[Rfam]
Nucleotides: 089
Stems, first nucleotide, its partner, number of pairs: 001089004
Number, partner (000 for none) and nucleotide at each position: 001089g002088g003087g004086c005000u006000g007000u008000g009000a010000u011000g012000a013000u014000a015000u016000u017000u018000g019000g020000c021000u022000u023000u024000a025000g026000c027000g028000a029000u030000g031000g032000u033000u034000g035000g036000g037000u038000c039000c040000a041000c042000c043000g044000c045000a046000u047000u048000c049000u050000u051000c052000u053000g054000u055000g056000a057000u058000c059000a060000u061000u062000u063000g064000g065000a066000u067000g068000a069000g070000a071000u072000u073000a074000g075000c076000c077000g078000c079000a080000c081000c082000c083000u084000g085000a086004g087003c088002u089001c
Annotation: A member of the RNA family "small nucleolar RNA snoR114" from Brassica carinata, 89 nucleotides long. For this family Rfam cites "Mining small RNA sequencing data: a new approach to identify small nucleolar RNAs in Arabidopsis" (Chen and Wu, Nucleic Acids Res, 2009). Its family is annotated with nucleolus and RNA processing in the Gene Ontology.